[Rfam]
RNA sequence: GAAUUCCACUAGGGGCGCCCGCGAGGGCUGAGAUAAGGCGAUGCCUUGGUCCCUUUGAACCUGAUCUGGGUCAUGCCAGCGUAGGAAAGUGGACCAAUGCGCGU
Numbered sequence: 001g002a003a004u005u006c007c008a009c010u011a012g013g014g015g016c017g018c019c020c021g022c023g024a025g026g027g028c029u030g031a032g033a034u035a036a037g038g039c040g041a042u043g044c045c046u047u048g049g050u051c052c053c054u055u056u057g058a059a060c061c062u063g064a065u066c067u068g069g070g071u072c073a074u075g076c077c078a079g080c081g082u083a084g085g086a087a088a089g090u091g092g093a094c095c096a097a098u099g100c101g102c103g104u
Stems, first nucleotide, its partner, number of pairs: 006092005011054004016048001017028004035047005060085004066079004
RNA: TPP riboswitch aptamer (THI element)
Organism: Paenibacillus antri